RNA sequence: ACAUUGGGCUGUAACUGGCGCUGAGGUGGAGUACCACCGGGGAGCAGCCCGGCCAUCAUGGUCCGUGCCGUGCGCCUGGGCGACUCAC
Numbered sequence: 001a002c003a004u005u006g007g008g009c010u011g012u013a014a015c016u017g018g019c020g021c022u023g024a025g026g027u028g029g030a031g032u033a034c035c036a037c038c039g040g041g042g043a044g045c046a047g048c049c050c051g052g053c054c055a056u057c058a059u060g061g062u063c064c065g066u067g068c069c070g071u072g073c074g075c076c077u078g079g080g081c082g083a084c085u086c087a088c
Base pairs, nucleotide, nucleotide: 004052005051006050007049008048009047010046011045012044015041016040017076018075019074020073021072026037027036028035029034066082067081068080069079
RNA: ZMP/ZTP riboswitch aptamer (pfl RNA motif)